[Rfam]
RNA: Actino-pnp RNA
Organism: Mycobacterium intracellulare
RNA sequence: GGCGGUCUUCGGUAGUGGCUGCCGGGCUCUCCGGAUCUGGGGCUUCUCGGCCGCUUCGAUCGAUGGCCGUA
Number, nucleotide and partner (000 for none) at each position: 001g000002g070003c069004g068005g067006u066007c065008u000009u063010c062011g061012g060013u059014a000015g000016u000017g055018g054019c053020u000021g051022c050023c049024g048025g047026g046027c000028u000029c000030u000031c000032c000033g000034g000035a000036u000037c000038u000039g000040g000041g000042g000043c000044u000045u000046c026047u025048c024049g023050g022051c021052c000053g019054c018055u017056u000057c000058g000059a013060u012061c011062g010063a009064u000065g007066g006067c005068c004069g003070u002071a000